[Rfam]
RNA sequence: GAUAGGUGACCGUCGCUACAGUGAUUGGACACUGACGCAGAGUCAACUAGCCUUGGUCACACGGUUCUUCGCACGCGCAGAACCGGGACGGUCCGAGCCACGAGGGGGGAGACUCGGACCGUCCGUC
Numbered sequence: 001g002a003u004a005g006g007u008g009a010c011c012g013u014c015g016c017u018a019c020a021g022u023g024a025u026u027g028g029a030c031a032c033u034g035a036c037g038c039a040g041a042g043u044c045a046a047c048u049a050g051c052c053u054u055g056g057u058c059a060c061a062c063g064g065u066u067c068u069u070c071g072c073a074c075g076c077g078c079a080g081a082a083c084c085g086g087g088a089c090g091g092u093c094c095g096a097g098c099c100a101c102g103a104g105g106g107g108g109g110a111g112a113c114u115c116g117g118a119c120c121g122u123c124c125g126u127c
Stems, first nucleotide, its partner, number of pairs: 001014003005010001015051004021032003033045004058075001062071003076085002087123011099111001101108001

This 127-nucleotide RNA from Streptomyces sp. AVP053U2 belongs to the Rfam family "Streptomyces RNA 3920".
The source organism's lineage runs through Bacteria, Bacillati, Actinomycetota, Streptomycetaceae and Streptomyces.
Rfam describes the family as follows. Identified by deep sequencing of transcriptome at the end of exponential growth phase.
The family's RNA type in Rfam is small RNA.